[Rfam]
RNA sequence: GGAAUGUGAUGAGUGGUCAUAUUUCGCAUUUUUGUUUUCUAAACAGAAAUAGCCUGCGAAAUGGGUGUCCGCUCAAUGCCUGGUUACGAUAAAAUUGGGCACUCUAAUUUAUACCAAUCUGAUCCC
Numbered sequence: 001g002g003a004a005u006g007u008g009a010u011g012a013g014u015g016g017u018c019a020u021a022u023u024u025c026g027c028a029u030u031u032u033u034g035u036u037u038u039c040u041a042a043a044c045a046g047a048a049a050u051a052g053c054c055u056g057c058g059a060a061a062u063g064g065g066u067g068u069c070c071g072c073u074c075a076a077u078g079c080c081u082g083g084u085u086a087c088g089a090u091a092a093a094a095u096u097g098g099g100c101a102c103u104c105u106a107a108u109u110u111a112u113a114c115c116a117a118u119c120u121g122a123u124c125c126c
Stems, first nucleotide, its partner, number of pairs: 001126002004123001014116004023060005063104007081097004
The family of this 126-nucleotide sequence from Zostera marina is "Small nucleolar RNA Z279/snoR105/snoR108".
Rfam 15.1 lists 906 matches to the family in 223 species.
About the family: This family includes the plant snoRNAs known as Z279, snoR105 and snoR108.
By type it is a C/D-box small nucleolar RNA.
Its Rfam clan is "snoU13 clan".
The base pairs follow the family's consensus structure, which was predicted with PFOLD.
For this family Rfam cites "Experimental RNomics: identification of 140 candidates for small non-messenger RNAs in the plant Arabidopsis thaliana" (Marker et al., Curr Biol, 2002).